Rfam assigns this 186-nucleotide RNA from Phrynocephalus forsythii to the family "TUC338". It is annotated as a cis-regulatory element.

RNA sequence: UUCACAGCCCUGGAGACUGAAGUCCUCUGUCUAUCCACAGACCAGAUACAGCACAGGCAGCGGCAGUGGCAGCGCAAGCUUUCCCCACACUGCCUCCACCCUGUGCCUCAACUCCGACUUGGAGGAGCCACCUUUAAAGGUGAGAGGGGUAAUUCAGUCGCUGUGCCCGCCCAAAGCCUUGAGUCU
Numbered sequence: 001u002u003c004a005c006a007g008c009c010c011u012g013g014a015g016a017c018u019g020a021a022g023u024c025c026u027c028u029g030u031c032u033a034u035c036c037a038c039a040g041a042c043c044a045g046a047u048a049c050a051g052c053a054c055a056g057g058c059a060g061c062g063g064c065a066g067u068g069g070c071a072g073c074g075c076a077a078g079c080u081u082u083c084c085c086c087a088c089a090c091u092g093c094c095u096c097c098a099c100c101c102u103g104u105g106c107c108u109c110a111a112c113u114c115c116g117a118c119u120u121g122g123a124g125g126a127g128c129c130a131c132c133u134u135u136a137a138a139g140g141u142g143a144g145a146g147g148g149g150u151a152a153u154u155c156a157g158u159c160g161c162u163g164u165g166c167c168c169g170c171c172c173a174a175a176g177c178c179u180u181g182a183g184u185c186u
Base pairs, nucleotide, nucleotide: 002173007167011163012162013161015159016158017157018156019155020154021153024149025148026147027146028145030144032142033141034140035139038116040114048108051106052105053104054103055102056101062094063093064092065091066090067089068088119137120136121135122134123133124132125131